[Rfam]
RNA sequence: GCCUCUCGAGGUUGCGGAGACGCACCUCACCUCCCUGUUGGACUUGGGCCGGGCCUUGUGCUCGGCCUUUUUU
Numbered sequence: 001g002c003c004u005c006u007c008g009a010g011g012u013u014g015c016g017g018a019g020a021c022g023c024a025c026c027u028c029a030c031c032u033c034c035c036u037g038u039u040g041g042a043c044u045u046g047g048g049c050c051g052g053g054c055c056u057u058g059u060g061c062u063c064g065g066c067c068u069u070u071u072u073u
Stems, first nucleotide, its partner, number of pairs: 008028004013024002047067008
RNA: Singlet oxygen resistance RNA X
Organism: Halovulum dunhuangense